The family of this 52-nucleotide RNA sequence is "Xanthine riboswitch aptamer (NMT1 RNA)". For this family Rfam cites "Insights into xanthine riboswitch structure and metal ion-mediated ligand recognition" (Xu et al., Nucleic Acids Res, 2021). Gene Ontology term of the family: purine nucleobase binding.
[Rfam]
RNA sequence: CAUCGGAGUAGAAGCAGUCAGGCGCGAUGGGCGUCCGGUCAUUGCUCCACCC
Numbered sequence: 001c002a003u004c005g006g007a008g009u010a011g012a013a014g015c016a017g018u019c020a021g022g023c024g025c026g027a028u029g030g031g032c033g034u035c036c037g038g039u040c041a042u043u044g045c046u047c048c049a050c051c052c
Stems, first nucleotide, its partner, number of pairs: 005048006015037001019038001021035005